RNA sequence: GACCGUGAACAGGGGUGCACAUUGUGCUGAGAGUUAACCCUUAUCACCUGAUCUAGUUAAUACUAGCGUAGGGAGUUCUUAGUUUUUAUCC
Numbered sequence: 001g002a003c004c005g006u007g008a009a010c011a012g013g014g015g016u017g018c019a020c021a022u023u024g025u026g027c028u029g030a031g032a033g034u035u036a037a038c039c040c041u042u043a044u045c046a047c048c049u050g051a052u053c054u055a056g057u058u059a060a061u062a063c064u065a066g067c068g069u070a071g072g073g074a075g076u077u078c079u080u081a082g083u084u085u086u087u088a089u090c091c
Base pairs, nucleotide, nucleotide: 007078008077009076010075011041012040013039014038017027018026019025020024047072048071049070050069053066054065055064056063
The record is a 91-nucleotide RNA from Anaerorhabdus furcosa, which matches "TPP riboswitch aptamer (THI element)" in Rfam. Lineage of the source: Bacteria > Bacillati > Erysipelotrichia > Erysipelotrichaceae > Anaerorhabdus. The base pairs follow the family's consensus structure, which is taken from published work. The match comes from Rfam's covariance-model search (73 bits).